[Rfam]
RNA sequence: GGGUCCAUCUUACCCGACAGUGCUGGAUUGUAACGACUGUUGUUCUAACACUGUCUGGUAACGAUGUUUCC
Numbered sequence: 001g002g003g004u005c006c007a008u009c010u011u012a013c014c015c016g017a018c019a020g021u022g023c024u025g026g027a028u029u030g031u032a033a034c035g036a037c038u039g040u041u042g043u044u045c046u047a048a049c050a051c052u053g054u055c056u057g058g059u060a061a062c063g064a065u066g067u068u069u070c071c
Base pairs, nucleotide, nucleotide: 002070003069006066007065008064009063010061011060012059013058014057016055017054018053019052020051021050022049024047025046026045027044
The family of this 71-nucleotide sequence from Sphaeramia orbicularis is "mir-8/mir-141/mir-200 microRNA precursor family". On this family, see Lagos-Quintana et al., RNA 2003: "New microRNAs from mouse and human". Rfam links the family to the GO terms RISC complex and miRNA-mediated post-transcriptional gene silencing. NCBI's taxonomy places the organism under Eukaryota, Deuterostomia, Gnathostomata, Neopterygii, Sphaeramia. The base pairs follow the family's consensus structure, which was predicted with RNAalifold. Clan: mir-8 microRNA precursor clan.